[Rfam]
RNA sequence: AAGGCUCUCAGCUCCAGGCACGGCCCUCGGAAAUGGCCUGGAGUUUUUCGGCGAGGCGGCCGGUAAGGCGCCUCCCACUUUUC
Numbered sequence: 001a002a003g004g005c006u007c008u009c010a011g012c013u014c015c016a017g018g019c020a021c022g023g024c025c026c027u028c029g030g031a032a033a034u035g036g037c038c039u040g041g042a043g044u045u046u047u048u049c050g051g052c053g054a055g056g057c058g059g060c061c062g063g064u065a066a067g068g069c070g071c072c073u074c075c076c077a078c079u080u081u082u083c
Stems, first nucleotide, its partner, number of pairs: 010045010024030002051076001053074006
The record is an 83-nucleotide RNA sequence from Burkholderia glumae, which matches "Burkholderia sRNA 54" in Rfam. The match comes from Rfam's covariance-model search (47 bits). It is annotated as a small RNA. Its family is annotated with bacterial biofilm matrix in the Gene Ontology. About the family: Identified by RNA-seq, RACE and Northern blot. Strongly expressed in biofilm.